[Rfam]
Nucleotides: 174
Base pairs, nucleotide, nucleotide: 001162002161003160004159008051009050010049011048012047013046014045052157053156054155055154056153057152062097098142099141100140106119107118108117109116122136123135124134125133
Number, partner (000 for none) and nucleotide at each position: 001162c002161g003160c004159c005000u006000a007000a008051u009050c010049c011048u012047g013046c014045c015000a016000c017000c018000g019000c020000u021000c022000g023000g024000a025000a026000a027000c028000c029000u030000c031000c032000c033000u034000u035000u036000u037000c038000a039000c040000c041000c042000g043000a044000c045014g046013g047012c048011a049010g050009g051008a052157g053156c054155g055154g056153g057152g058000g059000a060000c061000c062097c063000a064000c065000g066000a067000a068000u069000a070000c071000g072000c073000c074000g075000g076000u077000c078000c079000g080000g081000u082000g083000a084000u085000c086000c087000g088000g089000a090000a091000c092000g093000g094000c095000u096000c097062g098142g099141g100140g101000u102000g103000c104000a105000g106119c107118c108117g109116c110000g111000u112000g113000c114000g115000c116109g117108c118107g119106g120000c121000c122136g123135g124134a125133c126000a127000c128000c129000u130000c131000c132000c133125g134124u135123c136122c137000g138000a139000a140100c141099c142098c143000g144000a145000c146000a147000g148000c149000u150000c151000a152057c153056c154055u155054c156053g157052u158000a159004g160003g161002c162001g163000c164000c165000g166000g167000a168000g169000a170000g171000g172000a173000a174000u